[Rfam]
Nucleotides: 165
Base pairs, nucleotide, nucleotide: 004036005035006034007033008032013030014029015028016027017026018025042073043072044071046069047068048067050065051064052063053062124159125158126157127156128155129154130153131152132151133150134149135148136147
Number, partner (000 for none) and nucleotide at each position: 001000a002000g003000c004036a005035c006034c007033u008032u009000u010000a011000a012000a013030u014029c015028a016027g017026u018025c019000c020000c021000g022000u023000g024000a025018g026017a027016c028015u029014g030013g031000c032008a033007a034006g035005g036004u037000a038000a039000c040000g041000u042073g043072a044071u045000u046069g047068g048067a049000c050065c051064c052063g053062u054000u055000c056000a057000a058000a059000g060000c061000u062053g063052c064051g065050g066000c067048u068047u069046u070000u071044g072043u073042u074000u075000c076000g077000g078000a079000u080000g081000u082000c083000c084000u085000u086000u087000a088000g089000a090000g091000c092000u093000u094000a095000a096000u097000g098000a099000c100000c101000c102000g103000g104000c105000g106000u107000a108000c109000g110000c111000c112000u113000g114000c115000c116000g117000c118000g119000g120000u121000u122000a123000u124159a125158a126157g127156a128155c129154u130153c131152c132151u133150u134149g135148c136147c137000a138000u139000g140000a141000u142000u143000u144000u145000a146000c147136g148135g149134c150133a151132g152131g153130g154129a155128g156127u157126c158125u159124u160000u161000u162000u163000u164000u165000u